[Rfam]
tRNA: a 72-nucleotide RNA from Aerosakkonema funiforme. Pairs were carried over by alignment from the consensus structure, which is taken from published work.

RNA sequence: GCGGGUGUGAUGUAGUGGCUAGCAUCUGAGUCUGCCAGUCUCAGCGCAUGGGUUCGAGUCCCGUCAUCCGCU
Numbered sequence: 001g002c003g004g005g006u007g008u009g010a011u012g013u014a015g016u017g018g019c020u021a022g023c024a025u026c027u028g029a030g031u032c033u034g035c036c037a038g039u040c041u042c043a044g045c046g047c048a049u050g051g052g053u054u055c056g057a058g059u060c061c062c063g064u065c066a067u068c069c070g071c072u
Stems, first nucleotide, its partner, number of pairs: 001071007010025004027043004048064005